[Rfam]
RNA sequence: GGAUAGAGAGAAGGCAAGAUGUUGGCAUAGCUGAGUAGAAUUUUUCUUGCCUGAAUCCAGCUGUCCUUCAUCUUGCCAUCUUACCUCAUC
Numbered sequence: 001g002g003a004u005a006g007a008g009a010g011a012a013g014g015c016a017a018g019a020u021g022u023u024g025g026c027a028u029a030g031c032u033g034a035g036u037a038g039a040a041u042u043u044u045u046c047u048u049g050c051c052u053g054a055a056u057c058c059a060g061c062u063g064u065c066c067u068u069c070a071u072c073u074u075g076c077c078a079u080c081u082u083a084c085c086u087c088a089u090c
Stems, first nucleotide, its partner, number of pairs: 006084001008082004013077009024066002027064007
Background: This 90-nucleotide RNA from Darwinula stevensoni belongs to the Rfam family "mir-31 microRNA precursor family". On this family, see Ma et al., bioRxiv [Preprint] 2023: "Structure of pre-miR-31 reveals an active role in Dicer processing". The family is grouped with related families in Rfam's "mir-31 microRNA precursor family". Rfam links the family to the GO terms RISC complex and gene silencing by miRNA. A search with the family's covariance model found it, with a score of 58 bits.